The record is a 134-nucleotide sequence from Ornithorhynchus anatinus, which matches "Small nucleolar RNA SNORA67" in Rfam. The family's RNA type in Rfam is H/ACA-box small nucleolar RNA. A search with the family's covariance model found it, with a score of 62 bits. Its family is annotated with nucleolus and RNA processing in the Gene Ontology.
RNA sequence: GGCCAAGGAGAUUCCCUCUCCCGGGGGCCGCACCGUGCCCCUUCUGGAACGUAGCUCCUUGGUAGAGCAGCGAGCGGGCUCAUGGGGGAAAGGGCCUGAUGUCGCCCCUCCCCGUCAUUCACGCCCCCACAUGC
Numbered sequence: 001g002g003c004c005a006a007g008g009a010g011a012u013u014c015c016c017u018c019u020c021c022c023g024g025g026g027g028c029c030g031c032a033c034c035g036u037g038c039c040c041c042u043u044c045u046g047g048a049a050c051g052u053a054g055c056u057c058c059u060u061g062g063u064a065g066a067g068c069a070g071c072g073a074g075c076g077g078g079c080u081c082a083u084g085g086g087g088g089a090a091a092g093g094g095c096c097u098g099a100u101g102u103c104g105c106c107c108c109u110c111c112c113c114g115u116c117a118u119u120c121a122c123g124c125c126c127c128c129a130c131a132u133g134c
Stems, first nucleotide, its partner, number of pairs: 002063006009056002019048003023042006072126001074124002076120003084111002086108003